[Rfam]
RNA sequence: UUUCAUUUUCUGCUUGGAAGACUAGUGAUUUUAUUGUUUCGUAUUGCAUUAAACAAUAGAAACACUGUCUCCCAUCGGUGAAUGAAC
Numbered sequence: 001u002u003u004c005a006u007u008u009u010c011u012g013c014u015u016g017g018a019a020g021a022c023u024a025g026u027g028a029u030u031u032u033a034u035u036g037u038u039u040c041g042u043a044u045u046g047c048a049u050u051a052a053a054c055a056a057u058a059g060a061a062a063c064a065c066u067g068u069c070u071c072c073c074a075u076c077g078g079u080g081a082a083u084g085a086a087c
Stems, first nucleotide, its partner, number of pairs: 002086007010078003014074001016072002019070004025065003029061002031058001033057006

The family of this 87-nucleotide RNA sequence from Araneus ventricosus is "mir-7 microRNA precursor family". The base pairs follow the family's consensus structure, which was predicted with PFOLD. On this family, see Lagos-Quintana et al., Science 2001: "Identification of novel genes coding for small expressed RNAs". The organism belongs to Araneus, within Eukaryota. Its family is annotated with RISC complex and miRNA-mediated post-transcriptional gene silencing in the Gene Ontology. Rfam describes the family as follows. This family represents the microRNA (miRNA) precursor mir-7.